[Rfam]
RNA sequence: GUGGGCUACGGAGACAUGGUCCCAACAACCAUAGGAGGAAAGAUCGUAGGGUCUCUCUGCGCAAUUGCCGGUGUGCUGACUAUUGCACUGCCUGUACCUGUCAUUGUGUCAAAC
Numbered sequence: 001g002u003g004g005g006c007u008a009c010g011g012a013g014a015c016a017u018g019g020u021c022c023c024a025a026c027a028a029c030c031a032u033a034g035g036a037g038g039a040a041a042g043a044u045c046g047u048a049g050g051g052u053c054u055c056u057c058u059g060c061g062c063a064a065u066u067g068c069c070g071g072u073g074u075g076c077u078g079a080c081u082a083u084u085g086c087a088c089u090g091c092c093u094g095u096a097c098c099u100g101u102c103a104u105u106g107u108g109u110c111a112a113a114c
Stems, first nucleotide, its partner, number of pairs: 001114002005110001007108005013102004018097001021094001037077002040074001050062001